[Rfam]
RNA sequence: GCAUGAAAAAGGCAAGUACUUCGAAAGAAGUAUACGCAAAGCCACGGGCCUAAAGUGUAUCCAUUACACAAUGGCGGCCGGGCAGCCAUG
Numbered sequence: 001g002c003a004u005g006a007a008a009a010a011g012g013c014a015a016g017u018a019c020u021u022c023g024a025a026a027g028a029a030g031u032a033u034a035c036g037c038a039a040a041g042c043c044a045c046g047g048g049c050c051u052a053a054a055g056u057g058u059a060u061c062c063a064u065u066a067c068a069c070a071a072u073g074g075c076g077g078c079c080g081g082g083c084a085g086c087c088a089u090g
Base pairs, nucleotide, nucleotide: 012037013036017032018031019030020029021028022027041083042082043081045080046079047078048075049074050073055069056068057067058066

c-di-GMP-I riboswitch aptamer: a 90-nucleotide RNA sequence from Desulfallas thermosapovorans.
The source organism's lineage runs through Bacteria, Bacillati, Clostridia, Desulfallaceae and Desulfallas thermosapovorans.
A search with the family's covariance model found it, with a score of 69 bits.